Nucleotides: 123
Base pairs, nucleotide, nucleotide: 001123002122003121004120005119006118007117008116010114012112013111014110015109016108017107018106019105020104021103022102023100024099025098026097027096028095029094030093031092033090034089035088036087037086038085040083041082044079045078046077047076
Number, partner (000 for none) and nucleotide at each position: 001123a002122a003121u004120a005119a006118g007117a008116g009000a010114a011000c012112g013111a014110u015109a016108a017107a018106u019105u020104a021103g022102a023100u024099u025098u026097u027096c028095c029094u030093c031092c032000a033090g034089a035088u036087u037086u038085u039000c040083a041082g042000c043000u044079u045078u046077u047076u048000c049000c050000u051000c052000u053000u054000g055000a056000a057000a058000a059000a060000a061000a062000u063000u064000u065000a066000a067000a068000u069000c070000u071000a072000a073000c074000u075000a076047a077046a078045a079044a080000u081000g082041c083040u084000a085038a086037a087036a088035a089034u090033u091000a092031g093030g094029a095028g096027g097026a098025a099024a100023a101000a102022u103021c104020u105019a106018a107017u108016u109015u110014a111013u112012c113000a114010u115000c116008c117007u118006u119005u120004u121003a122002u123001u